[Rfam]
RNA sequence: GGUCCGAUGCCACGUUGCUGGUAGCCAAAACGGCGUUGACCGGCAAUGCUAUGAUUGGACCAAAAAAAAUUCCAUGUUUCGCUAACUGAUAGGAAUCUGUGGAUCUCAUUUUGUUGAUCUACGGAGCCAUUUUAUGCGAUUACAUUU
Numbered sequence: 001g002g003u004c005c006g007a008u009g010c011c012a013c014g015u016u017g018c019u020g021g022u023a024g025c026c027a028a029a030a031c032g033g034c035g036u037u038g039a040c041c042g043g044c045a046a047u048g049c050u051a052u053g054a055u056u057g058g059a060c061c062a063a064a065a066a067a068a069a070u071u072c073c074a075u076g077u078u079u080c081g082c083u084a085a086c087u088g089a090u091a092g093g094a095a096u097c098u099g100u101g102g103a104u105c106u107c108a109u110u111u112u113g114u115u116g117a118u119c120u121a122c123g124g125a126g127c128c129a130u131u132u133u134a135u136g137c138g139a140u141u142a143c144a145u146u147u
Base pairs, nucleotide, nucleotide: 002060003059004058005057006056007055008054009052013048014047015046016045017044018043020041021040022039024034025033026032079139080138081137082136092128093127097124098123099122101120102119103118104117105116
This 147-nucleotide sequence from Salix dunnii belongs to the Rfam family "Small nucleolar RNA snoR2/U65". A search with the family's covariance model found it, with a score of 147 bits. Its family is annotated with RNA processing and nucleolus in the Gene Ontology.